[Rfam]
RNA: mir-632 microRNA precursor family
Organism: Pongo pygmaeus
RNA sequence: CCUACCGCAGUGCCUGACGGGAGGCGGAGCGGGGAACGAGACCGUCGGCCAUUUUGUGUCUGCUUCCUGUGGGACGUGGUGGUA
Dot-bracket structure: .(((((((.((..((.((((((((((((((((.(..(((.....)))..)...)))).)))))))))))).)))))))))))..